A member of the RNA family "Small nucleolar RNA snR32" from Saccharomyces cerevisiae, 188 nucleotides long. Its family is annotated with nucleolus and RNA processing in the Gene Ontology. For this family Rfam cites "SnR31, snR32, and snR33: three novel, non-essential snRNAs from Saccharomyces cerevisiae" (Balakin et al., Nucleic Acids Res, 1993).
RNA sequence: AACAUCAUAAUUAUAUCGCGAAUGUACUACUAGUAUAUGCAGUUUUCUUAAAAUUGCAGGGAAUGACUAAAAGCCCACGUUUUUCCCACUUUUAGUAGUACUGAAGCGUAGAUAGAUUGAACGUUGCUGGGCGCCUGGUGUUGAUCAUUUCUGAAAUGAGAUAUUGGGAAUCAGCUGUAUCUACAUUU
Numbered sequence: 001a002a003c004a005u006c007a008u009a010a011u012u013a014u015a016u017c018g019c020g021a022a023u024g025u026a027c028u029a030c031u032a033g034u035a036u037a038u039g040c041a042g043u044u045u046u047c048u049u050a051a052a053a054u055u056g057c058a059g060g061g062a063a064u065g066a067c068u069a070a071a072a073g074c075c076c077a078c079g080u081u082u083u084u085c086c087c088a089c090u091u092u093u094a095g096u097a098g099u100a101c102u103g104a105a106g107c108g109u110a111g112a113u114a115g116a117u118u119g120a121a122c123g124u125u126g127c128u129g130g131g132c133g134c135c136u137g138g139u140g141u142u143g144a145u146c147a148u149u150u151c152u153g154a155a156a157u158g159a160g161a162u163a164u165u166g167g168g169a170a171u172c173a174g175c176u177g178u179a180u181c182u183a184c185a186u187u188u
Stems, first nucleotide, its partner, number of pairs: 017108003024101009038058004043052003059087005065081003119181002121178003134168002138164005145159005